Rfam assigns this 96-nucleotide sequence from Triticum urartu to the family "Small nucleolar RNA Z118/Z121/Z120". It scores 52 bits against the family's covariance model. The family's RNA type in Rfam is C/D-box small nucleolar RNA. The organism belongs to Triticum, within Eukaryota.
RNA sequence: UGUUUUGCCGUGAUGAUUCCGCUAGGACGGUAUAUGAGCGACGGGUCCUCCCGCGGCGUGAUUAUACCCAAUCUGAGACUAAUAUCUGAGCAAGCA
Numbered sequence: 001u002g003u004u005u006u007g008c009c010g011u012g013a014u015g016a017u018u019c020c021g022c023u024a025g026g027a028c029g030g031u032a033u034a035u036g037a038g039c040g041a042c043g044g045g046u047c048c049u050c051c052c053g054c055g056g057c058g059u060g061a062u063u064a065u066a067c068c069c070a071a072u073c074u075g076a077g078a079c080u081a082a083u084a085u086c087u088g089a090g091c092a093a094g095c096a
Base pairs, nucleotide, nucleotide: 001096002095003094005093006092007091008090038057039056042053043052044051045050